[Rfam]
RNA: Small nucleolar RNA ACA64
Organism: Bucco capensis
Nucleotides: 125
Stems, first nucleotide, its partner, number of pairs: 006050001008048001010045001014041003021034004065118001067116005077106005085098003
Number, partner (000 for none) and nucleotide at each position: 001000a002000c003000a004000g005000u006050c007000u008048g009000a010045a011000a012000a013000u014041c015040a016039c017000u018000u019000g020000g021034g022033g023032u024031c025000u026000u027000c028000u029000g030000u031024g032023g033022c034021c035000c036000c037000a038000g039016g040015u041014g042000u043000g044000a045010u046000a047000a048008c049000u050006g051000u052000g053000c054000c055000a056000a057000c058000a059000g060000c061000a062000c063000u064000g065118g066000g067116a068115g069114c070113a071112u072000u073000a074000a075000a076000c077106u078105c079104a080103u081102u082000a083000c084000c085098c086097a087096c088000g089000g090000u091000a092000a093000a094000g095000u096087g097086u098085g099000g100000g101000g102081a103080g104079u105078g106077a107000a108000a109000c110000u111000c112071a113070u114069g115068u116067u117000c118065c119000u120000a121000u122000a123000a124000u125000c